Shown here is a 168-nucleotide RNA from Paenibacillus tyrphae, a member of the family "M-box riboswitch aptamer (ykoK leader)". Pairs were carried over by alignment from the consensus structure. A search with the family's covariance model found it, with a score of 147 bits. Its family is annotated with regulation of gene expression and response to magnesium ion in the Gene Ontology. M-box riboswitch, also know as ykoK leader is described as a metaloregulatory RNA that sense divalent metals and function as a genetic control element of genes related to divalent metal transport in bacteria.
RNA sequence: UACGAACCUCGUUAGGUGAGGCUCCUGCAUGGAGAAAUGCUGCUGCCCAGAAACGUCGACAGACGCCAAUGGGUCAACAGAAGCCAUCGACAUAAGGUGGUUUUUAAUGUAGCUGGACGCAAGCUCCUAUGCCAUGCAGUGCUAAAACUCAACGAAUGGAGGUCGCCA
Numbered sequence: 001u002a003c004g005a006a007c008c009u010c011g012u013u014a015g016g017u018g019a020g021g022c023u024c025c026u027g028c029a030u031g032g033a034g035a036a037a038u039g040c041u042g043c044u045g046c047c048c049a050g051a052a053a054c055g056u057c058g059a060c061a062g063a064c065g066c067c068a069a070u071g072g073g074u075c076a077a078c079a080g081a082a083g084c085c086a087u088c089g090a091c092a093u094a095a096g097g098u099g100g101u102u103u104u105u106a107a108u109g110u111a112g113c114u115g116g117a118c119g120c121a122a123g124c125u126c127c128u129a130u131g132c133c134a135u136g137c138a139g140u141g142c143u144a145a146a147a148c149u150c151a152a153c154g155a156a157u158g159g160a161g162g163u164c165g166c167c168a
Stems, first nucleotide, its partner, number of pairs: 006163005011153002013095001015149003020143003025139008039113005045074005054065004080104004086098003115127003